[Rfam]
RNA sequence: GGAUGGCCUUGCCUCCGAGCCCGGGUAGACCCCCUGGGCCUCCCGGGCCGGGCCCACGGGCCCCGGGGUGGCGGGGGCAACCCCGCCGCCUGCCGCGGUCGCAAAGGAGGUGCGCAUGGGAAGAC
Numbered sequence: 001g002g003a004u005g006g007c008c009u010u011g012c013c014u015c016c017g018a019g020c021c022c023g024g025g026u027a028g029a030c031c032c033c034c035u036g037g038g039c040c041u042c043c044c045g046g047g048c049c050g051g052g053c054c055c056a057c058g059g060g061c062c063c064c065g066g067g068g069u070g071g072c073g074g075g076g077g078c079a080a081c082c083c084c085g086c087c088g089c090c091u092g093c094c095g096c097g098g099u100c101g102c103a104a105a106g107g108a109g110g111u112g113c114g115c116a117u118g119g120g121a122a123g124a125c
Stems, first nucleotide, its partner, number of pairs: 004118001011111006019048007030038003050063005066091011092102002
Annotation
Molybdenum/Tungsten riboswitch aptamer (Moco RNA motif): a 125-nucleotide sequence from Thermus thermophilus. The source organism's lineage runs through Bacteria, Thermotogati, Deinococci, Thermales and Thermus thermophilus. The base pairs follow the family's consensus structure, which is taken from published work. The literature on the family includes a 2008 paper in Mol Microbiol by Regulski et al., "in molybdenum cofactor and tungsten cofactor metabolism".